[Rfam]
RNA sequence: CCCGCCGAAGUGGGCCGGAGCCCAGCCUCGCCGGAGGCGGGCCGUGGGGUAGAGUUACUGAUUGGGUUGACCAGGAGGGGAAACCCUCCGGCACCCAGUCAAACUCCGAACCUGCGGCCGCCGAAGAGGGCGGGAGUGGGGCUCCCCGGCGUAAGGCUGGGGGCCGAGGGGGAAACAACCCAGACCGAGGUUAAGGCCCCAAAGUGCCGGCUAAGUGCCAAUCGAAGGGCGUCCCCCGCCUAAGACAGCGGGGAGGUGGGCCCAACAGCAGCCAUCCUCCAAGGAGUGCGUAACAGCUCACCCGCCGAGGCGGGGGGCCCCGAAGAUUGGUCGGGGCUAAGCCGGCCGCCGAGACCUCGGGCCGCCUCCGUGAUGGAGGUGUGCGGUAGGCGGGCGUCGGGGUGGCGCAGAAGCGGGGCCGUGAGGUCCCGUGGAGCCGCUCCGAGUGCUGAU
Numbered sequence: 001c002c003c004g005c006c007g008a009a010g011u012g013g014g015c016c017g018g019a020g021c022c023c024a025g026c027c028u029c030g031c032c033g034g035a036g037g038c039g040g041g042c043c044g045u046g047g048g049g050u051a052g053a054g055u056u057a058c059u060g061a062u063u064g065g066g067u068u069g070a071c072c073a074g075g076a077g078g079g080g081a082a083a084c085c086c087u088c089c090g091g092c093a094c095c096c097a098g099u100c101a102a103a104c105u106c107c108g109a110a111c112c113u114g115c116g117g118c119c120g121c122c123g124a125a126g127a128g129g130g131c132g133g134g135a136g137u138g139g140g141g142c143u144c145c146c147c148g149g150c151g152u153a154a155g156g157c158u159g160g161g162g163g164c165c166g167a168g169g170g171g172g173a174a175a176c177a178a179c180c181c182a183g184a185c186c187g188a189g190g191u192u193a194a195g196g197c198c199c200c201a202a203a204g205u206g207c208c209g210g211c212u213a214a215g216u217g218c219c220a221a222u223c224g225a226a227g228g229g230c231g232u233c234c235c236c237c238g239c240c241u242a243a244g245a246c247a248g249c250g251g252g253g254a255g256g257u258g259g260g261c262c263c264a265a266c267a268g269c270a271g272c273c274a275u276c277c278u279c280c281a282a283g284g285a286g287u288g289c290g291u292a293a294c295a296g297c298u299c300a301c302c303c304g305c306c307g308a309g310g311c312g313g314g315g316g317g318c319c320c321c322g323a324a325g326a327u328u329g330g331u332c333g334g335g336g337c338u339a340a341g342c343c344g345g346c347c348g349c350c351g352a353g354a355c356c357u358c359g360g361g362c363c364g365c366c367u368c369c370g371u372g373a374u375g376g377a378g379g380u381g382u383g384c385g386g387u388a389g390g391c392g393g394g395c396g397u398c399g400g401g402g403u404g405g406c407g408c409a410g411a412a413g414c415g416g417g418g419c420c421g422u423g424a425g426g427u428c429c430c431g432u433g434g435a436g437c438c439g440c441u442c443c444g445a446g447u448g449c450u451g452a453u
Base pairs, nucleotide, nucleotide: 001394002393003392004391005390006389011024012023013022014021015020026136027134028133029132030131031130032129036122037121038120040119041118042117043116044115045114046113047112052107053105054104060100061099062098063097064096065095066094068093069092074089075088076087077086078085079084140165141164142163144162145161146160147159148158149157170181171180172179185360186359187358188357189356190355191354195350196349197348204347206346207345208344209343210342211341227321228320229319231318232317233316234315235314236313237312238311239310240309248305249304250303251302252301254278255277256276259273260272261271279283284299288297289296361384362383363381364380365379366378367377395448397445398444399443400442401441402440403439404438405437406436413432414431415430416429417428418427419426420425
RNA: Archaeal large subunit ribosomal RNA, nucleotides 959 to 1411